[Rfam]
RNA: Potassium channel RNA editing signal
Nucleotides: 114
Stems, first nucleotide, its partner, number of pairs: 001114002004111002007108005013102003018097004037077004049063003
Number, partner (000 for none) and nucleotide at each position: 001114g002113u003000g004111g005110g006000c007108u008107a009106c010105g011104g012000g013102g014101a015100c016000a017000u018097g019096c020095a021094c022000c023000c024000c025000a026000u027000c028000a029000c030000c031000a032000u033000u034000g035000g036000c037077g038076g039075c040074a041000a042000g043000a044000u045000c046000g047000u048000g049063g050062g051061c052000u053000c054000g055000c056000u057000c058000u059000g060000c061051g062050c063049c064000a065000u066000c067000g068000c069000g070000g071000g072000c073000g074040u075039g076038c077037u078000c079000a080000c081000c082000a083000u084000c085000g086000c087000u088000c089000u090000g091000c092000c093000c094021g095020u096019g097018c098000c099000c100015g101014u102013c103000a104011u105010c106009g107008u108007g109000u110005c111004c112000a113002a114001c